[Rfam]
RNA sequence: UGGAUGAAGAUAGGGCGGUGGAGUUCGACACUAGCAUGUAUCACUUUGGUGAACAUGUACCUCCAGCGAGGCAGAGCAAGAGCUUGACUGAAGCUCAUAAGAAUAACAGUAAAUUGCAGAAGUGGUGCAAGAAGCAGGACAAGCUGAUCGCCAAGUGUUUCAAGCUUCUGACAGAUAAGCUAAGUUGCUCUUCCUCCACCACUGCUAUUCCA
Numbered sequence: 001u002g003g004a005u006g007a008a009g010a011u012a013g014g015g016c017g018g019u020g021g022a023g024u025u026c027g028a029c030a031c032u033a034g035c036a037u038g039u040a041u042c043a044c045u046u047u048g049g050u051g052a053a054c055a056u057g058u059a060c061c062u063c064c065a066g067c068g069a070g071g072c073a074g075a076g077c078a079a080g081a082g083c084u085u086g087a088c089u090g091a092a093g094c095u096c097a098u099a100a101g102a103a104u105a106a107c108a109g110u111a112a113a114u115u116g117c118a119g120a121a122g123u124g125g126u127g128c129a130a131g132a133a134g135c136a137g138g139a140c141a142a143g144c145u146g147a148u149c150g151c152c153a154a155g156u157g158u159u160u161c162a163a164g165c166u167u168c169u170g171a172c173a174g175a176u177a178a179g180c181u182a183a184g185u186u187g188c189u190c191u192u193c194c195u196c197c198a199c200c201a202c203u204g205c206u207a208u209u210c211c212a
Base pairs, nucleotide, nucleotide: 001212002211003210004209011201013199014197015196017194018193020191021190022189023188024187